[Rfam]
Rfam assigns this 138-nucleotide RNA from Populus deltoides to the family "MIR480 microRNA precursor family".
RNA sequence: UAAUAUAUAUAGAGAAAAUCCUCAUUUAACUAUGAAGACCCACACCUGACUGCUCAAAUGAUCGAGUUAUCGUAGGUCUGACAACAUCAUUUAGUUUUCAAGAGAGAGUUUUCAGUGGGAUCCAUGUAAAACUAUAGG
Numbered sequence: 001u002a003a004u005a006u007a008u009a010u011a012g013a014g015a016a017a018a019u020c021c022u023c024a025u026u027u028a029a030c031u032a033u034g035a036a037g038a039c040c041c042a043c044a045c046c047u048g049a050c051u052g053c054u055c056a057a058a059u060g061a062u063c064g065a066g067u068u069a070u071c072g073u074a075g076g077u078c079u080g081a082c083a084a085c086a087u088c089a090u091u092u093a094g095u096u097u098u099c100a101a102g103a104g105a106g107a108g109u110u111u112u113c114a115g116u117g118g119g120a121u122c123c124a125u126g127u128a129a130a131a132c133u134a135u136a137g138g
Stems, first nucleotide, its partner, number of pairs: 004136004008131001012127001014125001018121002023117003028110004
For this family Rfam cites "Novel and mechanical stress-responsive MicroRNAs in Populus trichocarpa that are absent from Arabidopsis" (Lu et al., Plant Cell, 2005). Lineage of the source: Eukaryota > Gunneridae > rosids > fabids > Populus.